Rfam assigns this 517-nucleotide sequence from Pyxidicoccus fallax to the family "Saccharopolyspora sRNA 350". On this family, see Liu et al., PLoS One 2013: "Prediction and characterization of small non-coding RNAs related to secondary metabolites in Saccharopolyspora erythraea".
RNA sequence: UUGACGGUGAAGGGCCACACGUCGUUCGACUCCACCACCGCCUGGUCCCCGAAGUGGUCGCCGUCCGCCAGCGUGUCCAGCACGACGGGGUCGCCGUACUUGCCCCCGGUCAGCUUCUGCGCCUUGCCGUGCGCCAGGAGGUAGAUGUGAUCCGCGGGCUGGCCCGCCUCCACGAUGGUGGCCCCUGGCGGGUACUGCCGCUGGGUGAAGAGGCUGGCCAGGGUGCGGAUGAGCAGGUCAUCCACGUCCUCGAAGCCCCGCAUCAGCGGCAGCUUGAGCAGCUCCUGGGGGAUGACCUCCACCUUGACGCCGAUGUUGCUGAAGUUCAGGCGGUCGUCGCCCACGGUGUACGUCAACCGGCGGUUGACGCGGUACGUGCCGCCCGACACCUGCACCCAGGGCAGCACGCGCAGGAGCCACCGGGGGGUGAUUCCCUGCAUCAUCGGCUGCGUCUUGGUGGUCGUCGUGAGCUGGCGGGCCCCGGCCGUGCUCAGGCUGGAGCCCUCGUGCGCGACCC
Number, nucleotide and partner (000 for none) at each position: 001u000002u000003g000004a000005c000006g396007g395008u394009g393010a000011a391012g390013g000014g387015c000016c000017a334018c333019a000020c000021g331022u330023c000024g000025u000026u328027c000028g326029a325030c324031u322032c321033c000034a000035c000036c318037a317038c000039c315040g314041c000042c312043u000044g000045g311046u000047c309048c000049c000050c306051g305052a304053a000054g000055u235056g000057g000058u232059c231060g230061c228062c227063g226064u225065c000066c000067g000068c108069c000070a000071g000072c000073g000074u000075g103076u000077c102078c000079a100080g099081c000082a097083c096084g095085a000086c093087g000088g000089g000090g000091u000092c000093g086094c000095c084096g083097u082098a000099c080100u079101u000102g077103c075104c000105c000106c000107c000108g068109g000110u000111c000112a000113g000114c000115u000116u000117c222118u221119g000120c000121g000122c217123c216124u000125u000126g000127c212128c000129g000130u209131g000132c000133g000134c204135c203136a202137g201138g000139a000140g198141g000142u000143a196144g195145a000146u000147g000148u000149g000150a000151u000152c000153c000154g189155c188156g185157g184158g183159c178160u177161g000162g000163c000164c000165c174166g173167c000168c000169u000170c000171c000172a000173c166174g165175a000176u000177g160178g159179u000180g000181g000182c000183c158184c157185c156186u000187g000188g155189c154190g000191g000192g000193u000194a000195c144196u143197g000198c140199c000200g000201c137202u136203g135204g134205g000206u000207g000208a000209a130210g000211a000212g127213g000214c000215u000216g123217g122218c000219c000220a000221g118222g117223g000224u000225g064226c063227g062228g061229a000230u060231g059232a058233g000234c000235a055236g000237g302238u301239c000240a000241u000242c000243c000244a000245c000246g296247u295248c294249c000250u292251c291252g000253a000254a000255g000256c288257c287258c000259c000260g284261c000262a283263u000264c281265a000266g000267c276268g275269g000270c000271a000272g000273c000274u000275u268276g267277a000278g000279c000280a000281g264282c000283u262284c260285c000286u000287g257288g256289g000290g000291g251292a250293u000294g248295a247296c246297c000298u000299c000300c000301a238302c237303c000304u052305u051306g050307a000308c000309g047310c000311c045312g042313a000314u040315g039316u000317u037318g036319c000320u000321g032322a031323a000324g030325u029326u028327c000328a026329g000330g022331c021332g000333g018334u017335c348336g347337u346338c345339g000340c000341c000342c000343a000344c000345g338346g337347u336348g335349u000350a000351c000352g000353u000354c000355a000356a000357c385358c000359g383360g382361c381362g380363g379364u000365u000366g000367a377368c376369g375370c000371g000372g000373u000374a000375c369376g368377u367378g000379c363380c362381g361382c360383c359384c000385g357386a000387c014388a000389c000390c012391u011392g000393c009394a008395c007396c006397c437398a436399g435400g434401g433402c000403a431404g000405c429406a428407c427408g000409c424410g000411c422412a000413g421414g000415a000416g000417c000418c000419a000420c000421c413422g411423g000424g409425g000426g000427g407428u406429g405430a000431u403432u000433c401434c400435c399436u398437g397438c000439a000440u000441c000442a000443u000444c000445g480446g479447c000448u000449g000450c476451g475452u474453c473454u470455u469456g000457g467458u466459g000460g000461u000462c000463g000464u000465c000466g458467u457468g000469a455470g454471c000472u000473g453474g452475c451476g450477g000478g000479c446480c445481c000482c000483g516484g515485c000486c511487g510488u509489g000490c507491u000492c000493a000494g503495g000496c000497u000498g000499g000500a000501g000502c000503c494504c000505u000506c000507g490508u000509g488510c487511g486512c000513g000514a000515c484516c483517c000